[Rfam]
RNA: Lysine riboswitch aptamer
Organism: Halobacillus yeomjeoni
Nucleotides: 187
Base pairs, nucleotide, nucleotide: 007181008180009179010178011177016081017080018079019078020077021076022075023074024073032066033065034064035063036062037061038060039059085118086117087116088115089114090113092111093110094109095108096107119146120145121144122143123142124141126139127138128137148172149171150170151169152168153167154166
Number, partner (000 for none) and nucleotide at each position: 001000c002000g003000g004000u005000g006000a007181g008180g009179u010178a011177g012000a013000g014000g015000u016081g017080c018079a019078a020077a021076u022075g023074u024073c025000a026000u027000u028000a029000g030000u031000a032066a033065u034064c035063a036062a037061u038060g039059g040000g041000a042000g043000u044000u045000c046000u047000g048000a049000c050000a051000a052000a053000c054000g055000u056000u057000g058000a059039u060038c061037a062036u063035u064034g065033a066032u067000g068000a069000a070000a071000g072000g073024g074023a075022u076021g077020u078019u079018u080017g081016c082000c083000g084000a085118a086117g087116c088115u089114c090113a091000u092111g093110g094109u095108a096107g097000u098000g099000g100000u101000g102000u103000c104000a105000g106000g107096c108095u109094a110093c111092c112000c113090u114089g115088a116087g117086c118085u119146g120145g121144u122143g123142u124141a125000a126139u127138u128137u129000c130000u131000g132000a133000a134000c135000a136000a137128g138127g139126g140000a141124u142123a143122c144121a145120c146119u147000g148172u149171c150170a151169u152168g153167c154166a155000u156000g157000c158000u159000u160000u161000u162000u163000a164000g165000g166154u167153g168152c169151a170150u171149g172148g173000g174000g175000c176000g177011c178010u179009a180008c181007u182000g183000a184000u185000c186000g187000a